[Rfam]
RNA sequence: UGCUUAUUUUGCUCAGGCGGAGCUCGACCGCCCGUUUCGGAAAUGAUCGCAUUCAUUCAGGGCCACCGAGGUCAACAUGGGGUCGAGCCGAUGUGCCGCGUUCUGCAGAUCGCCCCA
Numbered sequence: 001u002g003c004u005u006a007u008u009u010u011g012c013u014c015a016g017g018c019g020g021a022g023c024u025c026g027a028c029c030g031c032c033c034g035u036u037u038c039g040g041a042a043a044u045g046a047u048c049g050c051a052u053u054c055a056u057u058c059a060g061g062g063c064c065a066c067c068g069a070g071g072u073c074a075a076c077a078u079g080g081g082g083u084c085g086a087g088c089c090g091a092u093g094u095g096c097c098g099c100g101u102u103c104u105g106c107a108g109a110u111c112g113c114c115c116c117a
Stems, first nucleotide, its partner, number of pairs: 016032005078117005089112002092109001094107003098103001